[Rfam]
RNA sequence: GACACUCUGGAAAGCGCUCGCCGCCAAGGGAUUUUGGUGUGCGAGCCACCGAAGGGGUAAGCUGCCGUCAGGCGGCGAAAGCUCUCAGGUUCCCGUGACAGAGGGGGCGAU
Numbered sequence: 001g002a003c004a005c006u007c008u009g010g011a012a013a014g015c016g017c018u019c020g021c022c023g024c025c026a027a028g029g030g031a032u033u034u035u036g037g038u039g040u041g042c043g044a045g046c047c048a049c050c051g052a053a054g055g056g057g058u059a060a061g062c063u064g065c066c067g068u069c070a071g072g073c074g075g076c077g078a079a080a081g082c083u084c085u086c087a088g089g090u091u092c093c094c095g096u097g098a099c100a101g102a103g104g105g106g107g108c109g110a111u
Base pairs, nucleotide, nucleotide: 003105005103006102007101008100009099016046017045018044019043020042021041048090049089050088051086052085055084056083057082061076062075063074064073065072066071

Shown here is a 111-nucleotide RNA from Sphingomonas sp. G-3-2-10, a member of the family "Glycine riboswitch aptamer". A search with the family's covariance model found it, with a score of 38 bits. The organism belongs to Sphingomonas, within Bacteria.